[Rfam]
RNA sequence: CCACUGCAUUUUGGCCAUGGAGGGUUGGGGCUUGGUGUCAUGCCCCAAGAUAACCUGCCCCCCAGCUUUGGACAGCAUGGAUUAGUCU
Numbered sequence: 001c002c003a004c005u006g007c008a009u010u011u012u013g014g015c016c017a018u019g020g021a022g023g024g025u026u027g028g029g030g031c032u033u034g035g036u037g038u039c040a041u042g043c044c045c046c047a048a049g050a051u052a053a054c055c056u057g058c059c060c061c062c063c064a065g066c067u068u069u070g071g072a073c074a075g076c077a078u079g080g081a082u083u084a085g086u087c088u
Base pairs, nucleotide, nucleotide: 003086004085005084006083008082009081010080011079014076015075018072021069022068023067024066025065026064027063028062029061030060032057034055035054036053037051038050039049041047042046

This 88-nucleotide RNA sequence from Pongo pygmaeus belongs to the Rfam family "mir-634 microRNA precursor family".
NCBI's taxonomy places the organism under Eukaryota, Eumetazoa, Teleostomi, Haplorrhini, Pongo.